[Rfam]
RNA sequence: AAGUGCUUUUAGUUCUUUUUGAAUUUGUUCAGUGGGUCUUCCGGUUGUUAACAGGAGACCUGC
Numbered sequence: 001a002a003g004u005g006c007u008u009u010u011a012g013u014u015c016u017u018u019u020u021g022a023a024u025u026u027g028u029u030c031a032g033u034g035g036g037u038c039u040u041c042c043g044g045u046u047g048u049u050a051a052c053a054g055g056a057g058a059c060c061u062g063c
Stems, first nucleotide, its partner, number of pairs: 035060007043052001045050001